Notes: A member of the RNA family "Small nucleolar RNA SNORA79" from Lates calcarifer, 143 nucleotides long.
RNA sequence: UGACGUCGGUUCCUCCUCCUGGCUGCAGUGAACCAGGAGGAUUUUACGACGUCGCAGAGAAACUCGGGUCUUUUUCACCCAGGAAGCUUCAGGCUGCAGCAGCCAAUCACAGCGGCUUCCUGGUUUUGCGAGACCCAACAAAC
Numbered sequence: 001u002g003a004c005g006u007c008g009g010u011u012c013c014u015c016c017u018c019c020u021g022g023c024u025g026c027a028g029u030g031a032a033c034c035a036g037g038a039g040g041a042u043u044u045u046a047c048g049a050c051g052u053c054g055c056a057g058a059g060a061a062a063c064u065c066g067g068g069u070c071u072u073u074u075u076c077a078c079c080c081a082g083g084a085a086g087c088u089u090c091a092g093g094c095u096g097c098a099g100c101a102g103c104c105a106a107u108c109a110c111a112g113c114g115g116c117u118u119c120c121u122g123g124u125u126u127u128g129c130g131a132g133a134c135c136c137a138a139c140a141a142a143c
Base pairs, nucleotide, nucleotide: 001054002053003052004051005050006049007048008047014041015040016039017038018037020035021034022033067135068134069133070132071131072130079123080122081121082120083119084118085117086116087115088114092108093107095105096104
The literature on the family includes a 2006 paper in RNA by Schattner et al., "A computational screen for mammalian pseudouridylation guide H/ACA RNAs". The family's consensus secondary structure was predicted with RNAalifold. About the family: ACA65 (SNORA79) is a member of the H/ACA class of snoRNAs that guide the sites of modification of uridines to pseudouridines. The source organism's lineage runs through Eukaryota, Bilateria, Deuterostomia, Centropomidae and Lates.